Rfam assigns this 96-nucleotide RNA sequence from Alkalilimnicola sp. S0819 to the family "t44 RNA". The literature on the family includes a 2002 paper in Nucleic Acids Res by Tjaden et al., "Transcriptome analysis of Escherichia coli using high-density oligonucleotide probe arrays".

RNA sequence: CGCACAAUGCGGCAAAUCCACACAUGCACCGUCACAUGCGGUGGGGUGCCCCUGAAACCAAAGGGGUUAUCGCAUGCGGGUGUAUGGAGGACCAAC
Numbered sequence: 001c002g003c004a005c006a007a008u009g010c011g012g013c014a015a016a017u018c019c020a021c022a023c024a025u026g027c028a029c030c031g032u033c034a035c036a037u038g039c040g041g042u043g044g045g046g047u048g049c050c051c052c053u054g055a056a057a058c059c060a061a062a063g064g065g066g067u068u069a070u071c072g073c074a075u076g077c078g079g080g081u082g083u084a085u086g087g088a089g090g091a092c093c094a095a096c
Stems, first nucleotide, its partner, number of pairs: 023086008035076009048067005
The family's RNA type in Rfam is small RNA. The base pairs follow the family's consensus structure, which was predicted with LocARNA.